A member of the RNA family "Small nucleolar RNA Z157/R69/R10" from Dioscorea zingiberensis, 100 nucleotides long. For this family Rfam cites "The high diversity of snoRNAs in plants: identification and comparative study of 120 snoRNA genes from Oryza sativa" (Chen et al., Nucleic Acids Res, 2003).
[Rfam]
RNA sequence: UUUGGUGCGAUGAUGAUGAUGAUUAACUGUGGACUAGAGUUUCUGAUCUGGUCCUUCUACCAAAAGUUGAAGACUAACCCUUGGCUGUCUGAGCACCCAC
Numbered sequence: 001u002u003u004g005g006u007g008c009g010a011u012g013a014u015g016a017u018g019a020u021g022a023u024u025a026a027c028u029g030u031g032g033a034c035u036a037g038a039g040u041u042u043c044u045g046a047u048c049u050g051g052u053c054c055u056u057c058u059a060c061c062a063a064a065a066g067u068u069g070a071a072g073a074c075u076a077a078c079c080c081u082u083g084g085c086u087g088u089c090u091g092a093g094c095a096c097c098c099a100c
Stems, first nucleotide, its partner, number of pairs: 002099001004097005040072004047065001049062004
Rfam 15.1 lists 836 matches to the family in 232 species.